[Rfam]
Notes
Rfam assigns this 135-nucleotide RNA from Branchiostoma lanceolatum to the family "Small nucleolar RNA SNORA68". The match comes from Rfam's covariance-model search (53 bits). U68 is a member of the H/ACA class of small nucleolar RNAs (snoRNAs) which act as guides in the the modification of uridines to pseudouridines. Pairs were carried over by alignment from the consensus structure, which was predicted with PFOLD. NCBI's taxonomy places the organism under Eukaryota, Opisthokonta, Metazoa, Amphioxiformes, Branchiostoma.
RNA sequence: GUUGCACUUCAAACUCUUUGAGCCCUACACUUAUAAAUUGAAUGGCUCAAGUCACAAUGUGCAGAUAGAAACACAGCUUGUCGCCUUCCCUGACUACAACCGUGUCAGUGGAAGUGAAUUGAAGCAGUAACAAUC
Numbered sequence: 001g002u003u004g005c006a007c008u009u010c011a012a013a014c015u016c017u018u019u020g021a022g023c024c025c026u027a028c029a030c031u032u033a034u035a036a037a038u039u040g041a042a043u044g045g046c047u048c049a050a051g052u053c054a055c056a057a058u059g060u061g062c063a064g065a066u067a068g069a070a071a072c073a074c075a076g077c078u079u080g081u082c083g084c085c086u087u088c089c090c091u092g093a094c095u096a097c098a099a100c101c102g103u104g105u106c107a108g109u110g111g112a113a114g115u116g117a118a119u120u121g122a123a124g125c126a127g128u129a130a131c132a133a134u135c
Stems, first nucleotide, its partner, number of pairs: 002064006009057001020048005026042001028040002073128002076125004085114005090108005